[Rfam]
RNA sequence: GAUUGCAGAGAUAAAAACACGAUCCGGUAGGUAGUCCGGAUGCAGCUAUGCUGUCAGUAACCUGCCCUCCUGGGGUUGUCCCUUCUCAAAAAAUGCACA
Number, nucleotide and partner (000 for none) at each position: 001g000002a000003u000004u091005g000006c000007a000008g087009a086010g085011a084012u000013a000014a000015a000016a000017a000018c000019a000020c000021g000022a041023u040024c039025c038026g037027g036028u000029a000030g000031g000032u000033a000034g000035u000036c027037c026038g025039g024040a023041u022042g054043c053044a052045g051046c050047u000048a000049u000050g046051c045052u044053g043054u042055c000056a000057g000058u000059a000060a000061c000062c000063u000064g076065c075066c074067c073068u000069c000070c000071u000072g000073g067074g066075g065076u064077u000078g000079u000080c000081c000082c000083u000084u011085c010086u009087c008088a000089a000090a000091a004092a000093a000094u000095g000096c000097a000098c000099a000
Annotation
A member of the RNA family "azaaromatic riboswitch aptamer (yjdF RNA)" from Fusibacter sp. 3D3, 99 nucleotides long. Taxonomically the source falls in Fusibacter (Bacteria, Bacillati, Clostridia, Eubacteriales). Pairs were carried over by alignment from the consensus structure, which is taken from published work.